[Rfam]
Notes: A member of the RNA family "MIR8565 microRNA precursor family" from Amborella trichopoda, 154 nucleotides long. A search with the family's covariance model found it, with a score of 152 bits. The source organism's lineage runs through Eukaryota, Euphyllophyta, Spermatophyta, Amborellales and Amborella. Gene Ontology terms of the family: RISC complex and miRNA-mediated post-transcriptional gene silencing.
RNA sequence: CCCACACCCAUGUAUGUAGGACUCAAAAGGAUCAUCAUUAAAUUUGGCAUAGAUCUCUAGAAAAGUUAUCACGUAGGUGUGAGACUUGACUUUUCUAGAUAUCUGUGUCAAAUUUAAUAGUGAUCAUUUAGGGUCCUACAUACAUGGGUGUGGG
Numbered sequence: 001c002c003c004a005c006a007c008c009c010a011u012g013u014a015u016g017u018a019g020g021a022c023u024c025a026a027a028a029g030g031a032u033c034a035u036c037a038u039u040a041a042a043u044u045u046g047g048c049a050u051a052g053a054u055c056u057c058u059a060g061a062a063a064a065g066u067u068a069u070c071a072c073g074u075a076g077g078u079g080u081g082a083g084a085c086u087u088g089a090c091u092u093u094u095c096u097a098g099a100u101a102u103c104u105g106u107g108u109c110a111a112a113u114u115u116a117a118u119a120g121u122g123a124u125c126a127u128u129u130a131g132g133g134u135c136c137u138a139c140a141u142a143c144a145u146g147g148g149u150g151u152g153g154g
Base pairs, nucleotide, nucleotide: 002153003152004151005150006149007148008147009146010145011144012143013142015140016139017138018137019136020135021134022133023132024131026129027128028127030125031124032123034121035120037118038117039116040115041114042113043112044111045110046109047108048107049106050105051104052103053102054101056099057098058097059096060095061094062093063092064091065090066089067088068087069082070081071080072079073078
Dot-bracket structure: .((((((((((((.((((((((((.(((.(((.((.((((((((((((((((((.((((((((((((((((((....)))))....))))))))))))).)))))))))))))))))).)).))).))).)))))))))).)))))))))))).